The record is a 146-nucleotide RNA from Pseudomonas taeanensis, which matches "PrrF RNA" in Rfam. By type it is a small RNA. PrrF RNA is a small RNA involved in iron homeostasis and is found exclusively in Pseudomonas species. The family's consensus secondary structure is taken from published work.
[Rfam]
RNA sequence: UUGACUUGUAAAUGAUAAUUGUUAUUAUUAUCGCGACUGAUCGCGAGAUCAGCUGUUAACCUCAAGAGACUUACAGGCCUCUUCUGGUUAUCUCCUCAUCAGGCUAAUCACGGUUAUUGACCCGGCUCUUGCCGGGUCUUUUUUUA
Numbered sequence: 001u002u003g004a005c006u007u008g009u010a011a012a013u014g015a016u017a018a019u020u021g022u023u024a025u026u027a028u029u030a031u032c033g034c035g036a037c038u039g040a041u042c043g044c045g046a047g048a049u050c051a052g053c054u055g056u057u058a059a060c061c062u063c064a065a066g067a068g069a070c071u072u073a074c075a076g077g078c079c080u081c082u083u084c085u086g087g088u089u090a091u092c093u094c095c096u097c098a099u100c101a102g103g104c105u106a107a108u109c110a111c112g113g114u115u116a117u118u119g120a121c122c123c124g125g126c127u128c129u130u131g132c133c134g135g136g137u138c139u140u141u142u143u144u145u146a
Stems, first nucleotide, its partner, number of pairs: 034055002037052006061086001064083005070076001094103003119138008